RNA sequence: UAAGUGAAGAGUUUGAUCCUGGCUCAGAUUGAACGCUGGCGGCAUGCCUAACACAUGCAAGUCGAACGGCAGCACAGCAGUAGCAAUACUGUGGGUGGCGAGUGGCGGACGGGUGAGGAAUACAUCGGGACCUGCCCAGACGUGGGGGAUAACGUAGGGAAACUUACGCUAAUACCGCAUACGUCCUACGGGAGAAAGCGGGGGAUCGCAAGACCUCGCGCGGUUGGAUGGACCGAUGUUCGAUUAGCUAGUUGGUGGGGUAAUGGCUCACCAAGGCGACGAUCGAUAGCUGGUCUGAGAGGAUGAUCAGCCACACUGGGACUGAGACACGGCCCAGACUCCUACGGGAGGCAGCAGUGGGGAAUAUUGGACAAUGGGCGCAAGCCUGAUCCAGCAAUGCCGCGUGUGUGAAGAAGGCCUUCGGGUUGUAAAGCACUUUUAUCAGGAGCGAAAUGCCAUUGGUUAAUACCCGGUGGAGCUGACGGUACCUGAGGAAUAAGCACCGGCUAACUUCGUGCCAGCAGCCGCGGUAAUACGAAGGGUGCAAGCGUUAAUCGGAAUUACUG
Number, nucleotide and partner (000 for none) at each position: 001u000002a000003a000004g000005u000006g000007a000008a000009g025010a024011g023012u022013u021014u000015g000016a000017u000018c000019c000020u000021g013022g012023c011024u010025c009026a000027g556028a555029u554030u553031g000032a552033a551034c550035g549036c548037u547038g000039g403040c402041g401042g400043c399044a398045u396046g395047c361048c000049u000050a000051a000052c359053a358054c357055a000056u356057g355058c354059a000060a000061g106062u105063c104064g000065a000066a103067c102068g000069g099070c098071a000072g000073c000074a000075c000076a000077g092078c091079a090080g089081u088082a087083g000084c000085a000086a000087u082088a081089c080090u079091g078092u077093g000094g000095g000096u000097g000098g070099c069100g000101a000102g067103u066104g063105g062106c061107g000108g000109a000110c000111g000112g000113g314114u313115g312116a000117g000118g000119a000120a000121u000122a239123c238124a237125u236126c235127g234128g233129g000130a000131c231132c230133u000134g000135c000136c227137c226138a225139g224140a000141c222142g221143u000144g178145g000146g176147g175148g000149a000150u000151a000152a000153c168154g167155u166156a165157g164158g163159g000160a000161a000162a000163c158164u157165u156166a155167c154168g153169c000170u000171a000172a000173u000174a000175c147176c146177g000178c144179a000180u000181a000182c000183g000184u193185c192186c191187u000188a000189c000190g000191g186192g185193a184194g000195a000196a000197a000198g219199c218200g217201g216202g215203g214204g000205a000206u000207c000208g000209c000210a000211a000212g000213a000214c203215c202216u201217c200218g199219c198220g000221c142222g141223g000224u139225u138226g137227g136228a000229u000230g132231g131232a000233c128234c127235g126236a125237u124238g123239u122240u286241c285242g284243a000244u000245u000246a000247g277248c276249u275250a000251g000252u274253u273254g272255g271256u270257g269258g268259g267260g000261u000262a000263a000264u000265g000266g000267c259268u258269c257270a256271c255272c254273a253274a252275g249276g248277c247278g000279a000280c000281g000282a000283u000284c242285g241286a240287u000288a000289g311290c310291u309292g308293g304294u303295c302296u301297g000298a000299g000300a000301g296302g295303a294304u293305g000306a000307u000308c292309a291310g290311c289312c115313a114314c113315a000316c337317u336318g335319g334320g333321a000322c000323u000324g000325a000326g000327a000328c000329a000330c000331g000332g000333c320334c319335c318336a317337g316338a000339c350340u349341c348342c347343u000344a000345c000346g000347g342348g341349a340350g339351g000352c000353a000354g058355c057356a056357g054358u053359g052360g000361g047362g000363a000364a000365u000366a000367u393368u000369g392370g391371a390372c000373a000374a000375u388376g387377g386378g385379c384380g000381c000382a000383a000384g379385c378386c377387u376388g375389a000390u371391c370392c369393a367394g000395c046396a045397a000398u044399g043400c042401c041402g040403c039404g000405u000406g436407u435408g434409u433410g000411a000412a000413g000414a000415a000416g427417g426418c425419c424420u000421u000422c000423g000424g419425g418426u417427u416428g000429u000430a000431a000432a000433g409434c408435a407436c406437u000438u000439u000440u000441a000442u492443c491444a490445g489446g488447a000448g000449c000450g483451a000452a000453a000454u000455g000456c476457c475458a474459u473460u472461g471462g000463u000464u000465a000466a000467u000468a000469c000470c000471c461472g460473g459474u458475g457476g456477a000478g000479c000480u000481g000482a000483c450484g000485g000486u000487a000488c446489c445490u444491g443492a442493g000494g000495a000496a000497u000498a000499a000500g545501c544502a543503c542504c541505g000506g000507c000508u000509a000510a000511c540512u539513u538514c537515g536516u000517g000518c000519c000520a000521g528522c527523a000524g000525c000526c000527g522528c521529g000530g000531u000532a000533a000534u000535a000536c515537g514538a513539a512540g511541g504542g503543u502544g501545c500546a000547a037548g036549c035550g034551u033552u032553a030554a029555u028556c027557g000558g000559a000560a000561u000562u000563a000564c000565u000566g000

Shown here is a 566-nucleotide part of an RNA from Dyella choica, a member of the family "Bacterial small subunit ribosomal RNA". The family is grouped with related families in Rfam's "SSU clan". A search with the family's covariance model found it, with a score of 1591 bits. The source organism's lineage runs through Bacteria, Pseudomonadota, Gammaproteobacteria, Lysobacterales and Dyella. Rfam links the family to the GO terms ribosome and structural constituent of ribosome.